[Rfam]
RNA sequence: UCAAAUUCCGAGACACCUCAAGGUGUCUCGGAUUUCAAGACACCUCAAGGUGUCUCGGAAGUGCGAGACACCUCAGGGUGUC
Numbered sequence: 001u002c003a004a005a006u007u008c009c010g011a012g013a014c015a016c017c018u019c020a021a022g023g024u025g026u027c028u029c030g031g032a033u034u035u036c037a038a039g040a041c042a043c044c045u046c047a048a049g050g051u052g053u054c055u056c057g058g059a060a061g062u063g064c065g066a067g068a069c070a071c072c073u074c075a076g077g078g079u080g081u082c
Stems, first nucleotide, its partner, number of pairs: 004035002007032010050071008
The record is an 82-nucleotide sequence, which matches "nrdJ RNA" in Rfam. The family's RNA type in Rfam is small RNA.